[Rfam]
RNA sequence: UGGUGCCCAACGUGGGGCUUGAAGUAAGAGGGACACAGUGAGGGACAUCAUCGAAGCCGGCCGGAUUGAAGGAAGAAAUCCAGAGGAGGAGUCACCGUGGGAACCUGCUGCGGCCUUGCUCUCUGGUAAGUGGACGACGAUGAUAUUAUGGGUCAGGAAAUUAGUAAGCAUGAGUUGUUUGUAGAAGAACUCAGCAUAGCAUUAAAGGCGCGAGGAGUAAAGGUGAAAGUAAACCGGUUAAUUAAAUAUUUUGAUUAUAUUAAGGACGCUUGUCCCU
Numbered sequence: 001u002g003g004u005g006c007c008c009a010a011c012g013u014g015g016g017g018c019u020u021g022a023a024g025u026a027a028g029a030g031g032g033a034c035a036c037a038g039u040g041a042g043g044g045a046c047a048u049c050a051u052c053g054a055a056g057c058c059g060g061c062c063g064g065a066u067u068g069a070a071g072g073a074a075g076a077a078a079u080c081c082a083g084a085g086g087a088g089g090a091g092u093c094a095c096c097g098u099g100g101g102a103a104c105c106u107g108c109u110g111c112g113g114c115c116u117u118g119c120u121c122u123c124u125g126g127u128a129a130g131u132g133g134a135c136g137a138c139g140a141u142g143a144u145a146u147u148a149u150g151g152g153u154c155a156g157g158a159a160a161u162u163a164g165u166a167a168g169c170a171u172g173a174g175u176u177g178u179u180u181g182u183a184g185a186a187g188a189a190c191u192c193a194g195c196a197u198a199g200c201a202u203u204a205a206a207g208g209c210g211c212g213a214g215g216a217g218u219a220a221a222g223g224u225g226a227a228a229g230u231a232a233a234c235c236g237g238u239u240a241a242u243u244a245a246a247u248a249u250u251u252u253g254a255u256u257a258u259a260u261u262a263a264g265g266a267c268g269c270u271u272g273u274c275c276c277u
Stems, first nucleotide, its partner, number of pairs: 006032003013026002037048001038046002082124003085120002091115001096112005131155003135152001161204001163202001164200002211253005217247002221239002224236002262277001264275004
A member of the RNA family "Mason-Pfizer monkey virus packaging signal" from Saimiri boliviensis, 277 nucleotides long. The literature on the family includes a 2004 paper in Virus Res by Mustafa et al., "Mutational analysis of the predicted secondary RNA structure of the Mason-Pfizer monkey virus packaging signal".